[Rfam]
The record is a 68-nucleotide RNA from Jaculus jaculus, which matches "Small nucleolar RNA SNORD95" in Rfam. It scores 79 bits against the family's covariance model. Rfam links the family to the GO terms nucleolus and RNA processing.

RNA sequence: GGUGCAGUGAUGACCCCAACAUGCCAUCUGAUUGCACUUACUGAAAACCAGAGGUUGUUUCUGAGCUG
Numbered sequence: 001g002g003u004g005c006a007g008u009g010a011u012g013a014c015c016c017c018a019a020c021a022u023g024c025c026a027u028c029u030g031a032u033u034g035c036a037c038u039u040a041c042u043g044a045a046a047a048c049c050a051g052a053g054g055u056u057g058u059u060u061c062u063g064a065g066c067u068g
Stems, first nucleotide, its partner, number of pairs: 005068004